[Rfam]
RNA sequence: AGUGAAGGUAGAGGUGCAAAUUUCAUCAGUAAAAGCUUGGAGAAGGGUGAGCUUCUGUGAAAAGCUUUGAAAGGGGAAUUUGCCGAAGUGAAGAAAUGCUCAUUCGUUUCUUUGCUGGUCCUGAAUUGAAAAAAUGCAGGAUUGUCAAGACAUCGUCUUGGAGAGCUAUCUCACUG
Numbered sequence: 001a002g003u004g005a006a007g008g009u010a011g012a013g014g015u016g017c018a019a020a021u022u023u024c025a026u027c028a029g030u031a032a033a034a035g036c037u038u039g040g041a042g043a044a045g046g047g048u049g050a051g052c053u054u055c056u057g058u059g060a061a062a063a064g065c066u067u068u069g070a071a072a073g074g075g076g077a078a079u080u081u082g083c084c085g086a087a088g089u090g091a092a093g094a095a096a097u098g099c100u101c102a103u104u105c106g107u108u109u110c111u112u113u114g115c116u117g118g119u120c121c122u123g124a125a126u127u128g129a130a131a132a133a134a135u136g137c138a139g140g141a142u143u144g145u146c147a148a149g150a151c152a153u154c155g156u157c158u159u160g161g162a163g164a165g166c167u168a169u170c171u172c173a174c175u176g
Stems, first nucleotide, its partner, number of pairs: 006171006016083009032068007087116012117143007125135003145161007